Rfam assigns this 115-nucleotide RNA from Zizania palustris to the family "Small nucleolar RNA Z278". About the family: snoZ278 is a C/D box small nucleolar RNA. Its methylation guide targets have not been reported. The family has 7 seed sequences and 1,130 matches in Rfam 15.1. The base pairs follow the family's consensus structure, which was predicted with PFOLD. Rfam links the family to the GO terms nucleolus and RNA processing. On this family, see Chen et al., Nucleic Acids Res 2003: "The high diversity of snoRNAs in plants: identification and comparative study of 120 snoRNA genes from Oryza sativa".
RNA sequence: GCCUGUGAGGAGCUGCCCGUUUGUUUGAGGGUGUAGUUAGCUCAAGUUCCUGUUUAACAGGAAGAACCUACUUGCAGCUGCUGCAUUCAAAUGAUGGUUAUGGGCUACCUUAGGU
Numbered sequence: 001g002c003c004u005g006u007g008a009g010g011a012g013c014u015g016c017c018c019g020u021u022u023g024u025u026u027g028a029g030g031g032u033g034u035a036g037u038u039a040g041c042u043c044a045a046g047u048u049c050c051u052g053u054u055u056a057a058c059a060g061g062a063a064g065a066a067c068c069u070a071c072u073u074g075c076a077g078c079u080g081c082u083g084c085a086u087u088c089a090a091a092u093g094a095u096g097g098u099u100a101u102g103g104g105c106u107a108c109c110u111u112a113g114g115u
Stems, first nucleotide, its partner, number of pairs: 001115003048062005